RNA sequence: UACAGACAAAGGCACAGCCGACGAAAGCCGGUGUCGCAAAGCCAAGGGCCUAACCGAAUUUUUCUUCGCACGGCAGCCGGUUGCCAAA
Number, nucleotide and partner (000 for none) at each position: 001u000002a000003c000004a000005g000006a000007c000008a000009a000010a000011g000012g037013c036014a000015c000016a000017g032018c031019c030020g029021a000022c027023g000024a000025a000026a000027g022028c000029c020030g019031g018032u017033g000034u000035c000036g013037c012038a000039a000040a082041g081042c080043c079044a000045a000046g078047g077048g074049c073050c072051u000052a000053a000054c000055c068056g067057a066058a065059u000060u000061u000062u000063u000064c000065u058066u057067c056068g055069c000070a000071c000072g050073g049074c048075a000076g000077c047078c046079g043080g042081u041082u040083g000084c000085c000086a000087a000088a000
Shown here is an 88-nucleotide RNA sequence from Firmicutes bacterium CAG:102, a member of the family "c-di-GMP-I riboswitch aptamer". The organism belongs to Bacillota, within Bacteria. Gene Ontology term of the family: cyclic-di-GMP binding. The family's consensus secondary structure is taken from published work.